[Rfam]
RNA sequence: AGUACAGAUAUGACCUGGGUUUAUUCACAGAUUAUAUCUGUACCGGCUGCUUUAUCAUGUACAAAUAAGGCCUGUACGGAUUUCACGUACGGGCUUUUUCUAUUUC
Numbered sequence: 001a002g003u004a005c006a007g008a009u010a011u012g013a014c015c016u017g018g019g020u021u022u023a024u025u026c027a028c029a030g031a032u033u034a035u036a037u038c039u040g041u042a043c044c045g046g047c048u049g050c051u052u053u054a055u056c057a058u059g060u061a062c063a064a065a066u067a068a069g070g071c072c073u074g075u076a077c078g079g080a081u082u083u084c085a086c087g088u089a090c091g092g093g094c095u096u097u098u099u100c101u102a103u104u105u106c
Stems, first nucleotide, its partner, number of pairs: 002043010015030003019026001069095010
Dot-bracket structure: .((((((((((...(((.(......).)))...)))))))))).........................((((((((((.......))))))))))...........